[Rfam]
RNA sequence: AUAUUAGACGAAAUUGGUUUGGCCCCAAUAAUAAUUAUAUAUUCUCUUAGAGAAUAUAUAACGUCAAUGGUUCGUCGUGUACGAUCCUUUUCGAGUUCCGCAGAAAAUUACGUAAGUAAGAGUUUGUAGCAUUUGUAAAAUGGGACAACAUUUUGUUAGUAUU
Numbered sequence: 001a002u003a004u005u006a007g008a009c010g011a012a013a014u015u016g017g018u019u020u021g022g023c024c025c026c027a028a029u030a031a032u033a034a035u036u037a038u039a040u041a042u043u044c045u046c047u048u049a050g051a052g053a054a055u056a057u058a059u060a061a062c063g064u065c066a067a068u069g070g071u072u073c074g075u076c077g078u079g080u081a082c083g084a085u086c087c088u089u090u091u092c093g094a095g096u097u098c099c100g101c102a103g104a105a106a107a108u109u110a111c112g113u114a115a116g117u118a119a120g121a122g123u124u125u126g127u128a129g130c131a132u133u134u135g136u137a138a139a140a141u142g143g144g145a146c147a148a149c150a151u152u153u154u155g156u157u158a159g160u161a162u163u
Base pairs, nucleotide, nucleotide: 009074010073011072012071013029014028015027016026017025035061036060037059040056041055042054043053044052045051046050089106090105091104092103108119109118110117111116124148125147126146127145
Dot-bracket structure: ........(((((((((.......))))).....(((..(((((((...)))))))..))).........))))..............((((..........)))).((((....))))....((((.................))))...............
Rfam assigns this 163-nucleotide RNA to the family "OTKONC RNA". By type it is a small RNA.